This 304-nucleotide RNA from Acrocephalus arundinaceus belongs to the Rfam family "7SK RNA". For this family Rfam cites "Structural analyses of the 7SK ribonucleoprotein (RNP), the most abundant human small RNP of unknown function" (Wassarman and Steitz, Mol Cell Biol, 1991). About the family: 7SK was discovered as an abundant small nuclear RNA in the mid-70s but a possible function has only recently been suggested. The match comes from Rfam's covariance-model search (99 bits). By type it is a non-coding RNA gene. Pairs were carried over by alignment from the consensus structure, which is taken from published work.
RNA sequence: AGAUAUGUGGUUAAUCUGGCUGUGAGAUCCGAUAUGCAUGGGUUGAUCUGACUGAUCGGCUAGUUUAGGCAGGUGUUCGCUUUCUUCCUCAACAUUCCAUGUGUGUUCCUCCUGAUGCUGUGUGCUUGGUUAAUGGGGACAGCCUCCCCAAUAGACACAGUAUUGUUCAUUGCUCAAGUGCUCUCUGCUGGAAGCUCUAAGUAAGCUCAAGAUCCAUUUGUAUAUGAAUGUAGGGUAGUCAAACACCCAAUACUGAAGACAUAUCCAAAUGAGAAGCUUCAUGCAGCAGUCUGCCAGUGGCUUU
Numbered sequence: 001a002g003a004u005a006u007g008u009g010g011u012u013a014a015u016c017u018g019g020c021u022g023u024g025a026g027a028u029c030c031g032a033u034a035u036g037c038a039u040g041g042g043u044u045g046a047u048c049u050g051a052c053u054g055a056u057c058g059g060c061u062a063g064u065u066u067a068g069g070c071a072g073g074u075g076u077u078c079g080c081u082u083u084c085u086u087c088c089u090c091a092a093c094a095u096u097c098c099a100u101g102u103g104u105g106u107u108c109c110u111c112c113u114g115a116u117g118c119u120g121u122g123u124g125c126u127u128g129g130u131u132a133a134u135g136g137g138g139a140c141a142g143c144c145u146c147c148c149c150a151a152u153a154g155a156c157a158c159a160g161u162a163u164u165g166u167u168c169a170u171u172g173c174u175c176a177a178g179u180g181c182u183c184u185c186u187g188c189u190g191g192a193a194g195c196u197c198u199a200a201g202u203a204a205g206c207u208c209a210a211g212a213u214c215c216a217u218u219u220g221u222a223u224a225u226g227a228a229u230g231u232a233g234g235g236u237a238g239u240c241a242a243a244c245a246c247c248c249a250a251u252a253c254u255g256a257a258g259a260c261a262u263a264u265c266c267a268a269a270u271g272a273g274a275a276g277c278u279u280c281a282u283g284c285a286g287c288a289g290u291c292u293g294c295c296a297g298u299g300g301c302u303u304u
Base pairs, nucleotide, nucleotide: 002097003096006091007090009088010087013083014082018080024077025076027074028073029072031070033068035063036060037059041057042056043055044054045052106160107159110155111154112129113128114127115126117125118124130151131150137147138146139145178244179243181238182237183235184234185233186232187231188230195226201221202220203219204218205217267304268303269302273295276290277289278288280286
Dot-bracket structure: .((..((.((..((...(.....((.(((.(.(.(((...(((((......).)))).))..)....).).))).))..).))...)).))....))........((..((((((.((.....))))))((.....(((.....)))..))..))...)).................((.((((((((......(.....(((((...........)))))....)...)))))).))....))......................(((...(..(((.(.....).)))....)......)))